[Rfam]
RNA: Group II catalytic intron D1-D4-1
RNA sequence: CGCAUCCAUUGCAAAAGCAUGCCCGAGCAAAGAGAGGUCAGCAGAGGGCAUAGUAGCGAUCCGCCGAAUCCAACCGCGACGCGAAGGCC
Numbered sequence: 001c002g003c004a005u006c007c008a009u010u011g012c013a014a015a016a017g018c019a020u021g022c023c024c025g026a027g028c029a030a031a032g033a034g035a036g037g038u039c040a041g042c043a044g045a046g047g048g049c050a051u052a053g054u055a056g057c058g059a060u061c062c063g064c065c066g067a068a069u070c071c072a073a074c075c076g077c078g079a080c081g082c083g084a085a086g087g088c089c
Stems, first nucleotide, its partner, number of pairs: 002022004007017001009016002038045002047089003056082003062078003